[Rfam]
RNA sequence: CCAGUAGCUGAAGCGAAAGUUGCAACUGUCAGAACUGUAGUCUUUCAC
Numbered sequence: 001c002c003a004g005u006a007g008c009u010g011a012a013g014c015g016a017a018a019g020u021u022g023c024a025a026c027u028g029u030c031a032g033a034a035c036u037g038u039a040g041u042c043u044u045u046c047a048c
Base pairs, nucleotide, nucleotide: 001037008032009031012027013026015046016045017044018043019042